[Rfam]
RNA sequence: CCGUGCUAAGCGGGGAGGUAGCGGUGCCCUGUACUCGCAAUCCGCUCUAGCGAGGCUGAAUUCCUUCUUUAGGCUAGUUUGCUGUAGAGUCUGCCUAGAGUAAGUGGUGUUGACGUUUGGGUCCUGCGCAAUGGGAAUCCGUGAACCCUGUCAGGUCCGGAAGGAAGCAGCAGUAAGCGGACAAUCCCAUGUGCCGCAGGGGUGCCUGAACCGAGCUAACUACUCUAGUAACGUUUAUGGCAGCUAGUCGACAGAAGGUGCACGG
Number, nucleotide and partner (000 for none) at each position: 001c265002c264003g263004u262005g261006c260007u000008a000009a057010g056011c055012g030013g029014g028015g027016a000017g025018g000019u023020a000021g000022c000023g019024g000025u017026g000027c015028c014029c013030u012031g000032u000033a000034c054035u053036c052037g051038c050039a000040a000041u000042c000043c000044g000045c000046u000047c000048u000049a000050g038051c037052g036053a035054g034055g011056c010057u009058g000059a000060a000061u000062u000063c258064c257065u256066u255067c254068u253069u000070u000071a000072g249073g248074c247075u246076a245077g000078u000079u243080u242081g241082c240083u239084g238085u237086a236087g235088a234089g000090u000091c000092u230093g229094c000095c000096u227097a226098g225099a224100g223101u222102a000103a000104g220105u219106g217107g216108u215109g000110u000111u000112g000113a000114c000115g211116u210117u209118u208119g207120g206121g205122u204123c200124c199125u198126g197127c196128g195129c191130a190131a000132u189133g188134g187135g186136a185137a000138u181139c180140c179141g178142u177143g000144a000145a000146c000147c000148c173149u172150g171151u170152c000153a000154g000155g000156u165157c164158c163159g000160g000161a000162a000163g158164g157165a156166a000167g000168c000169a000170g151171c150172a149173g148174u000175a000176a000177g142178c141179g140180g139181a138182c000183a000184a000185u136186c135187c134188c133189a132190u130191g129192u000193g000194c000195c128196g127197c126198a125199g124200g123201g000202g000203u000204g122205c121206c120207u119208g118209a117210a116211c115212c000213g000214a000215g108216c107217u106218a000219a105220c104221u000222a101223c100224u099225c098226u097227a096228g000229u093230a092231a000232c000233g000234u088235u087236u086237a085238u084239g083240g082241c081242a080243g079244c000245u076246a075247g074248u073249c072250g000251a000252c000253a068254g067255a066256a065257g064258g063259u000260g006261c005262a004263c003264g002265g001
Bacterial large signal recognition particle RNA: a 265-nucleotide RNA from Anoxybacillus flavithermus. The signal recognition particle (SRP) is a universally conserved ribonucleoprotein involved in the co-translational targeting of proteins to membranes. The match comes from Rfam's covariance-model search (253 bits). Gene Ontology terms of the family: signal recognition particle, plasma membrane targeting and SRP-dependent cotranslational protein targeting to membrane, signal sequence recognition.